[Rfam]
RNA sequence: ACAAAGGCUCUUUUAAGAGCCACUCCAUACACAGUAAAAGGAGCUG
Numbered sequence: 001a002c003a004a005a006g007g008c009u010c011u012u013u014u015a016a017g018a019g020c021c022a023c024u025c026c027a028u029a030c031a032c033a034g035u036a037a038a039a040g041g042a043g044c045u046g
Stems, first nucleotide, its partner, number of pairs: 006021006
Background:
The family of this 46-nucleotide RNA sequence from Orthonyx spaldingii is "Histone 3' UTR stem-loop". For this family Rfam cites "The sequence of the stem and flanking sequences at the 3' end of histone mRNA are critical determinants for the binding of the stem-loop binding protein" (Williams and Marzluff, Nucleic Acids Res, 1995). From the family's description: The mRNAs of metazoan histone genes lack a poly-A tail. 3' end processing occurs at a site between a highly conserved stem-loop (modelled by this family) and a purine rich region around 20 nts downstream (the histone downstream element, or HDE). The stem-loop is bound by a 31 kDa stem-loop binding protein (SLBP - also termed the histone hairpin binding protein, or HBP). Together with U7 snRNA binding of the HDE, SLBP binding nucleate s the formation of the processing complex. The histone 3' UTR stem-loop is also involved in nucleocytoplasmic transport of the mRNA, and in stability regulation and translation efficiency in the cytoplasm. The family's RNA type in Rfam is cis-regulatory element.